[Rfam]
RNA: Burkholderia sRNA 1
Organism: Caballeronia glathei
RNA sequence: AGUUCUGCUGCACCGAAUUUUGAGGUGGAGAACGAGGAGACAACGAGGCACAAAGUGCCCGACCGAAAAGCGCUGUUGGAUGAUUCCAACAGCGCUUUUUU
Numbered sequence: 001a002g003u004u005c006u007g008c009u010g011c012a013c014c015g016a017a018u019u020u021u022g023a024g025g026u027g028g029a030g031a032a033c034g035a036g037g038a039g040a041c042a043a044c045g046a047g048g049c050a051c052a053a054a055g056u057g058c059c060c061g062a063c064c065g066a067a068a069a070g071c072g073c074u075g076u077u078g079g080a081u082g083a084u085u086c087c088a089a090c091a092g093c094g095c096u097u098u099u100u101u
Stems, first nucleotide, its partner, number of pairs: 002033004009029001011027004015020001037064001039063001044061002047059005067098014